Background: The record is a 73-nucleotide RNA from Callosobruchus maculatus, which matches "mir-970 microRNA precursor family" in Rfam.
RNA sequence: UUUCAGCAGCCUCGCGUAUGUCGUACUGAUAGUGUUAAUGAUAGCUAUCAUAAGACACACGCGGCUGUUGUAG
Numbered sequence: 001u002u003u004c005a006g007c008a009g010c011c012u013c014g015c016g017u018a019u020g021u022c023g024u025a026c027u028g029a030u031a032g033u034g035u036u037a038a039u040g041a042u043a044g045c046u047a048u049c050a051u052a053a054g055a056c057a058c059a060c061g062c063g064g065c066u067g068u069u070g071u072a073g
Stems, first nucleotide, its partner, number of pairs: 001073002004070003008066004014062003019057004027050005
Gene Ontology terms of the family: miRNA-mediated post-transcriptional gene silencing and RISC complex.